[Rfam]
RNA sequence: GGUUGGCGGCGGACGGGCUCCUCGCCAACCCGGUCAGGUCCGGAAGGAAGCAGCCGUAACGGGUUCUUGCCCGGGUCGCCCGCCAGCCUCC
Numbered sequence: 001g002g003u004u005g006g007c008g009g010c011g012g013a014c015g016g017g018c019u020c021c022u023c024g025c026c027a028a029c030c031c032g033g034u035c036a037g038g039u040c041c042g043g044a045a046g047g048a049a050g051c052a053g054c055c056g057u058a059a060c061g062g063g064u065u066c067u068u069g070c071c072c073g074g075g076u077c078g079c080c081c082g083c084c085a086g087c088c089u090c091c
Base pairs, nucleotide, nucleotide: 001088002087003086004085005084006083007082008080009079010078011077014073015072016071017070018069021063022062023061024060031056032055033054034053039048040047041046
The record is a 91-nucleotide RNA from Elioraea tepida, which matches "Bacterial small signal recognition particle RNA" in Rfam. It scores 57 bits against the family's covariance model.